[Rfam]
RNA sequence: GUCAAAUGAUUUGAAAUAAUAAUGCUGAUGCUCUGUGAGGUAUGACAGUUAAUAGCAUGUUAGAGUUCUGAUGACA
Numbered sequence: 001g002u003c004a005a006a007u008g009a010u011u012u013g014a015a016a017u018a019a020u021a022a023u024g025c026u027g028a029u030g031c032u033c034u035g036u037g038a039g040g041u042a043u044g045a046c047a048g049u050u051a052a053u054a055g056c057a058u059g060u061u062a063g064a065g066u067u068c069u070g071a072u073g074a075c076a
Stems, first nucleotide, its partner, number of pairs: 001075004

Shown here is a 76-nucleotide RNA sequence from Dasypus novemcinctus, a member of the family "Small nucleolar RNA SNORD28". Its family is annotated with RNA processing and nucleolus in the Gene Ontology. The family's consensus secondary structure was predicted with PFOLD. A reference for the family is Tycowski et al. (1996), "A small nucleolar RNA requirement for site-specific ribose methylation of rRNA in Xenopus", Proc Natl Acad Sci U S A. Lineage of the source: Eukaryota > Euteleostomi > Eutheria > Dasypodidae > Dasypus. The family's RNA type in Rfam is C/D-box small nucleolar RNA. The sequence is in the family's curated seed alignment.